[Rfam]
RNA sequence: CACUGCCCUCGGCUUCUUUACAGUGCUGCCUUGUUGCGGAUGGAUCAAGCAGCAUUGUACAGGGCUAUGA
Dot-bracket structure: .............((((.((((((((((.((((............)))))))))))))).))))......
This 70-nucleotide RNA from Equus caballus belongs to the Rfam family "mir-103/107 microRNA precursor family".
The sequence is in the family's curated seed alignment.
Rfam's curators write: This family consists of the mammalian microRNA (miRNA) precursors mir-103 and mir107. Animal miRNAs are transcribed as ~70nt precursors and subsequently processed by the Dicer enzyme to give a ~22nt product. In this case the mature sequence comes from the 3' arm of the precursor.
For this family Rfam cites "miRNPs: a novel class of ribonucleoproteins containing numerous microRNAs" (Mourelatos et al., Genes Dev, 2002).
Pairs were carried over by alignment from the consensus structure, which was predicted with RNAalifold.